[Rfam]
RNA sequence: UAUUAGGUUGGUGCAAAAGUAAUAGUGGUUUUCGCCAUUACUUUUAAUGGCGAAAACCACUAUUACUUUUGCAACAACCUAAUA
Numbered sequence: 001u002a003u004u005a006g007g008u009u010g011g012u013g014c015a016a017a018a019g020u021a022a023u024a025g026u027g028g029u030u031u032u033c034g035c036c037a038u039u040a041c042u043u044u045u046a047a048u049g050g051c052g053a054a055a056a057c058c059a060c061u062a063u064u065a066c067u068u069u070u071g072c073a074a075c076a077a078c079c080u081a082a083u084a
Stems, first nucleotide, its partner, number of pairs: 001084010012073029

Shown here is an 84-nucleotide RNA sequence from Rhinopithecus roxellana, a member of the family "mir-548 microRNA precursor family".
The family has 11 seed sequences and 3,009 matches in Rfam 15.1.
Gene Ontology terms of the family: miRNA-mediated post-transcriptional gene silencing and RISC complex.
NCBI's taxonomy places the organism under Eukaryota, Metazoa, Gnathostomata, Dipnotetrapodomorpha, Rhinopithecus.